[Rfam]
RNA sequence: AAUGUGUUAAUGAUGGUCUGUCUUUAAACUCAAGAGAGCAAGCAGACCUGAUGCCUGACACU
Number, nucleotide and partner (000 for none) at each position: 001a062002a000003u060004g059005u058006g000007u000008u000009a000010a000011u000012g000013a000014u000015g048016g047017u046018c045019u044020g043021u042022c000023u040024u000025u000026a000027a000028a000029c038030u037031c036032a000033a000034g000035a000036g031037a030038g029039c000040a023041a000042g021043c020044a019045g018046a017047c016048c015049u000050g000051a000052u000053g000054c000055c000056u000057g000058a005059c004060a003061c000062u001
RNA: Selenocysteine insertion sequence 1
Organism: Dicentrarchus labrax